RNA sequence: UUUAUACAUCAAGAGAAGGGCUGACGUCCUCGCCAACCUGCCUACCUGGGCAAGGUGGUUGUUUCGCUAAGUAACAGCGUAACGAUGUGGUCAUUUACCGACAAUAAAUCAGGUAACC
Dot-bracket structure: .....(((((....(.(((((....))))))(((..((((((.[[[[[))).))).)))........................))))).(((.......))).......]]]]]....
Numbered sequence: 001u002u003u004a005u006a007c008a009u010c011a012a013g014a015g016a017a018g019g020g021c022u023g024a025c026g027u028c029c030u031c032g033c034c035a036a037c038c039u040g041c042c043u044a045c046c047u048g049g050g051c052a053a054g055g056u057g058g059u060u061g062u063u064u065c066g067c068u069a070a071g072u073a074a075c076a077g078c079g080u081a082a083c084g085a086u087g088u089g090g091u092c093a094u095u096u097a098c099c100g101a102c103a104a105u106a107a108a109u110c111a112g113g114u115a116a117c118c
Stems, first nucleotide, its partner, number of pairs: 006088005015031001017030005032059003037055003040051003044114005090102003

Shown here is a 118-nucleotide sequence from Amphritea japonica, a member of the family "SAM-I/IV (S-adenosyl methionine) riboswitch aptamer".
The literature on the family includes a 2008 paper in RNA by Weinberg et al., "The aptamer core of SAM-IV riboswitches mimics the ligand-binding site of SAM-I riboswitches".
Pairs were carried over by alignment from the consensus structure, which is taken from published work.
It scores 68 bits against the family's covariance model.